[Rfam]
RNA sequence: AAUUGAAAAAGGCAAACUAUGUCGAAAGAAUAGGACGCAAAGCCUAGGGUCUAAGGUAUUUAUACUAUGAUCGCCUGGUUACCAAA
Numbered sequence: 001a002a003u004u005g006a007a008a009a010a011g012g013c014a015a016a017c018u019a020u021g022u023c024g025a026a027a028g029a030a031u032a033g034g035a036c037g038c039a040a041a042g043c044c045u046a047g048g049g050u051c052u053a054a055g056g057u058a059u060u061u062a063u064a065c066u067a068u069g070a071u072c073g074c075c076u077g078g079u080u081a082c083c084a085a086a
Base pairs, nucleotide, nucleotide: 012038013037017033018032019031020030022029023028041080042079043078044077046076047075048074049071050070051069056065057064058063
Shown here is an 86-nucleotide RNA sequence from Aquibacillus koreensis, a member of the family "c-di-GMP-I riboswitch aptamer". Pairs were carried over by alignment from the consensus structure, which is taken from published work.